Shown here is a 119-nucleotide RNA from Streptomyces albireticuli, a member of the family "Streptomyces-metH RNA". It is annotated as a small RNA. Lineage of the source: Bacteria > Actinomycetes > Kitasatosporales > Streptomycetaceae > Streptomyces. The base pairs follow the family's consensus structure, which is taken from published work. A search with the family's covariance model found it, with a score of 94 bits.
[Rfam]
RNA sequence: CGUAUCAAGCGGUGGGACACCCGUCCAUUUCCCGGGCCCGCCAGCUAGGCUUGCGGCGUGCGUUCUCCACCGGAGGACGCAAAGCCGACAGCCGUCGCAACCCCGGGAGCACUUCCAUG
Numbered sequence: 001c002g003u004a005u006c007a008a009g010c011g012g013u014g015g016g017a018c019a020c021c022c023g024u025c026c027a028u029u030u031c032c033c034g035g036g037c038c039c040g041c042c043a044g045c046u047a048g049g050c051u052u053g054c055g056g057c058g059u060g061c062g063u064u065c066u067c068c069a070c071c072g073g074a075g076g077a078c079g080c081a082a083a084g085c086c087g088a089c090a091g092c093c094g095u096c097g098c099a100a101c102c103c104c105g106g107g108a109g110c111a112c113u114u115c116c117a118u119g
Stems, first nucleotide, its partner, number of pairs: 059081004064076004084098002087096003